[Rfam]
RNA sequence: AAUCCCUACGGAACUCUCAGGUCCGCCGCAUCUCCUGGGUCCCGUAGGGUGGGCCGGUUGCGAUUCAGGAUAGAGUGGCCUCCUCGUUACGCCUGGGUCGCAACCGGCCAUAUC
Numbered sequence: 001a002a003u004c005c006c007u008a009c010g011g012a013a014c015u016c017u018c019a020g021g022u023c024c025g026c027c028g029c030a031u032c033u034c035c036u037g038g039g040u041c042c043c044g045u046a047g048g049g050u051g052g053g054c055c056g057g058u059u060g061c062g063a064u065u066c067a068g069g070a071u072a073g074a075g076u077g078g079c080c081u082c083c084u085c086g087u088u089a090c091g092c093c094u095g096g097g098u099c100g101c102a103a104c105c106g107g108c109c110a111u112a113u114c
Base pairs, nucleotide, nucleotide: 004049005048006047007046008045009044010043016039017038018037019036020035021034052109053108054107055106056105057104058103059102060101061100062099

Rfam assigns this 114-nucleotide RNA from Stappia sediminis to the family "EcpR1". Rfam links the family to the GO terms regulation of translation in response to stress, negative regulation of cell cycle and mRNA binding. For this family Rfam cites "A stress-induced small RNA modulates alpha-rhizobial cell cycle progression" (Robledo et al., PLoS Genet, 2015). Rfam describes the family as follows. Perviously named SmelC291, SmrC10, or Sra33. According to its overproduction phenotype it was renamed Elongated Cell Phenotype RNA1. Induced by stress,EcpR1 negatively regulates cell cycle master regulatory genes dnaA and gcrA at post-transcriptional level by base pairing between its strongly conserved GC-rich loop and the target mRNAs. NCBI's taxonomy places the organism under Bacteria, Pseudomonadati, Hyphomicrobiales, Stappiaceae, Stappia. The base pairs follow the family's consensus structure, which was predicted with WAR. By type it is a small RNA.